[Rfam]
RNA sequence: UGCUGUGUAUGAUGAGAAAAUUUUGAAAUCAGUUAUCCCUGGCUGAUUUUGGUUAUGAUGACAUCUUGUGAUCUGACACAGAC
Number, nucleotide and partner (000 for none) at each position: 001u000002g000003c081004u080005g079006u078007g077008u000009a000010u000011g000012a000013u000014g000015a000016g000017a000018a000019a000020a000021u000022u000023u000024u000025g000026a000027a000028a000029u000030c000031a000032g000033u000034u000035a000036u000037c000038c000039c000040u000041g000042g000043c000044u000045g000046a000047u000048u000049u000050u000051g000052g000053u000054u000055a000056u000057g000058a000059u000060g000061a000062c000063a000064u000065c000066u000067u000068g000069u000070g000071a000072u000073c000074u000075g000076a000077c007078a006079c005080a004081g003082a000083c000
RNA: Small nucleolar RNA R38